[Rfam]
RNA: SAM (S-adenosyl methionine) riboswitch aptamer
RNA sequence: GGUCUUGAGCGUCAGCGCGAAGCCCCGGCUCGCUGGCCAGCAACCCUCCGACGCGGUGGGGUGCUCCGGGUGACGACCUGGCUCGGUCGCAGCAGCGGCCGCGCAAGCGCGAUCC
Numbered sequence: 001g002g003u004c005u006u007g008a009g010c011g012u013c014a015g016c017g018c019g020a021a022g023c024c025c026c027g028g029c030u031c032g033c034u035g036g037c038c039a040g041c042a043a044c045c046c047u048c049c050g051a052c053g054c055g056g057u058g059g060g061g062u063g064c065u066c067c068g069g070g071u072g073a074c075g076a077c078c079u080g081g082c083u084c085g086g087u088c089g090c091a092g093c094a095g096c097g098g099c100c101g102c103g104c105a106a107g108c109g110c111g112a113u114c115c
Base pairs, nucleotide, nucleotide: 001078002077003076004075009038011037012036013035014034015033016032021030022029039065040064041063044061045060046059048056049055081104082103084101085100086099087098088097089096090095